Rfam assigns this 86-nucleotide RNA sequence from Solanum tuberosum to the family "MIR8024 microRNA precursor family". The organism belongs to Solanum, within Eukaryota. The family has 2 seed sequences and 661 matches in Rfam 15.1. Rfam links the family to the GO terms RISC complex and miRNA-mediated post-transcriptional gene silencing.
[Rfam]
RNA sequence: UUAAAGGAUUUGAAGACUUCCACUUGCAUACUUACAGGAUUUAAAGACUUCAACUUGCAUAUUUUGAGGAUUUGAAGACCUUAACU
Numbered sequence: 001u002u003a004a005a006g007g008a009u010u011u012g013a014a015g016a017c018u019u020c021c022a023c024u025u026g027c028a029u030a031c032u033u034a035c036a037g038g039a040u041u042u043a044a045a046g047a048c049u050u051c052a053a054c055u056u057g058c059a060u061a062u063u064u065u066g067a068g069g070a071u072u073u074g075a076a077g078a079c080c081u082u083a084a085c086u
Base pairs, nucleotide, nucleotide: 001084002083003082004081006079009076010075011074012073013072014071017068018067019066025059026058027057028056032053033052036049037048
Dot-bracket structure: ((((.(..((((((..(((.....((((...((..((..........))..))..))))......)))..))))))..).))))..